[Rfam]
RNA sequence: UGUUGGAACCAUUCAAAACAGCAUAGCAAGUUAAAAUAAGGCUAGUCCGUUAUCAACUUGAAAAAGUGGCACCGAGUCGGUGCUUUUUUU
Numbered sequence: 001u002g003u004u005g006g007a008a009c010c011a012u013u014c015a016a017a018a019c020a021g022c023a024u025a026g027c028a029a030g031u032u033a034a035a036a037u038a039a040g041g042c043u044a045g046u047c048c049g050u051u052a053u054c055a056a057c058u059u060g061a062a063a064a065a066g067u068g069g070c071a072c073c074g075a076g077u078c079g080g081u082g083c084u085u086u087u088u089u090u
Stems, first nucleotide, its partner, number of pairs: 001036001003034003009026001011024002014021001040048002056067001058065002069083006
Dot-bracket structure: (.(((...(.((.(......).)).).....))).)...((.....)).......(.((....)).).((((((...)))))).......

Shown here is a 90-nucleotide sequence from Streptococcus pyogenes, a member of the family "Trans-activating crRNA". On this family, see Yang et al., Chem Sci 2021: "Nonspecific interactions between SpCas9 and dsDNA sites located downstream of the PAM mediate facilitated diffusion to accelerate target search". From the family's description: RNA-guided Streptococcus pyogenes Cas9 (SpCas9) is a sequence-specific DNA endonuclease, the Trans-activating CRISPR RNA form an hybrid with the crRNA (crRNA/tracrRNA). The RNA hybrid acts as a guide for the endonuclease Cas9.